[Rfam]
RNA sequence: CCUCUUUUUCCCAAGGCCACUAGCGCCUAUAUUCAGCCUGUCGGGCAACCGACUAUGGCGAUAAACGGCCUGUGAAAUAAGCAUUGCGGACCCGGGGGCGGUACCCGGCGCCUCCACCAAAGAUUCCCGGCCUCGUGGCUGGCUCCUUGGGGGCGAAAUAGGAUCGACGCGUGUGGUAAAGACAGUUCUUUCGCUCGGCAUGGUUCCGCCGUUAUCGGGCCAUUAUAGUAGUUGCAAACGACAACUAUGCGGAAGCUCGCCUCGCUGCGUAAGCAGUCAGGUGCUUCAAUUAAGUCCUAAGGGUUCGCACUUUUAGGCGGGGUUUGGGGCGCACCUGGCAACAGAAGCGUCCCGCU
Numbered sequence: 001c002c003u004c005u006u007u008u009u010c011c012c013a014a015g016g017c018c019a020c021u022a023g024c025g026c027c028u029a030u031a032u033u034c035a036g037c038c039u040g041u042c043g044g045g046c047a048a049c050c051g052a053c054u055a056u057g058g059c060g061a062u063a064a065a066c067g068g069c070c071u072g073u074g075a076a077a078u079a080a081g082c083a084u085u086g087c088g089g090a091c092c093c094g095g096g097g098g099c100g101g102u103a104c105c106c107g108g109c110g111c112c113u114c115c116a117c118c119a120a121a122g123a124u125u126c127c128c129g130g131c132c133u134c135g136u137g138g139c140u141g142g143c144u145c146c147u148u149g150g151g152g153g154c155g156a157a158a159u160a161g162g163a164u165c166g167a168c169g170c171g172u173g174u175g176g177u178a179a180a181g182a183c184a185g186u187u188c189u190u191u192c193g194c195u196c197g198g199c200a201u202g203g204u205u206c207c208g209c210c211g212u213u214a215u216c217g218g219g220c221c222a223u224u225a226u227a228g229u230a231g232u233u234g235c236a237a238a239c240g241a242c243a244a245c246u247a248u249g250c251g252g253a254a255g256c257u258c259g260c261c262u263c264g265c266u267g268c269g270u271a272a273g274c275a276g277u278c279a280g281g282u283g284c285u286u287c288a289a290u291u292a293a294g295u296c297c298u299a300a301g302g303g304u305u306c307g308c309a310c311u312u313u314u315a316g317g318c319g320g321g322g323u324u325u326g327g328g329g330c331g332c333a334c335c336u337g338g339c340a341a342c343a344g345a346a347g348c349g350u351c352c353c354g355c356u
Base pairs, nucleotide, nucleotide: 040053041052042051043050044049057195058194059193060192061191067188068187070185071184072183073182082173083172084171086170087169088168092108093107094106095105096104109155110154111153112152113151114150115149196211197210198209199208201222202221203220205219206218207217320336321335322334323333326352327351328350
Rfam assigns this 356-nucleotide RNA from Nisaea acidiphila to the family "Alphaproteobacteria transfer-messenger RNA". Its Rfam clan is "tRNA clan". Lineage of the source: Bacteria > Pseudomonadati > Pseudomonadota > Alphaproteobacteria > Nisaea. Bacterial tmRNA, also known as 10Sa RNA or SsrA, is named for its dual tRNA and mRNA-like properties. Its role is to liberate the mRNA from a stalled ribosome. To accomplish this part of the tmRNA is used as a reading frame that ends in a translation stop signal. The broken mRNA is replaced in the ribosome by the tmRNA and translation of the tmRNA leads to addition of a proteolysis tag to the incomplete protein enabling recognition by a protease. Recently a number of permuted tmRNA genes have been found encoded in two parts. tmRNAs have been identified in eubacteria and some chloroplasts but are absent from archaeal and eukaryote nuclear genomes. Its family is annotated with RNA catabolic process in the Gene Ontology.